[Rfam]
RNA sequence: UCACGCUGUCGCAACUGGCGCACUGGUGGUCACCACCGGGGAGCGGCACCAGCAUCACUGACGUCGGGUCGCCCGCCUGGGCCCGCCGG
Numbered sequence: 001u002c003a004c005g006c007u008g009u010c011g012c013a014a015c016u017g018g019c020g021c022a023c024u025g026g027u028g029g030u031c032a033c034c035a036c037c038g039g040g041g042a043g044c045g046g047c048a049c050c051a052g053c054a055u056c057a058c059u060g061a062c063g064u065c066g067g068g069u070c071g072c073c074c075g076c077c078u079g080g081g082c083c084c085g086c087c088g089g
Base pairs, nucleotide, nucleotide: 005050007048008047009046010045011044012043015040016039017077018076019075020074026036027035028034029033066084067083068082069081070080

This 89-nucleotide RNA sequence from Cellulomonas denverensis belongs to the Rfam family "ZMP/ZTP riboswitch aptamer (pfl RNA motif)". Lineage of the source: Bacteria > Actinomycetes > Micrococcales > Cellulomonadaceae > Cellulomonas. Gene Ontology terms of the family: one-carbon metabolic process and regulation of purine nucleotide biosynthetic process. It scores 51 bits against the family's covariance model.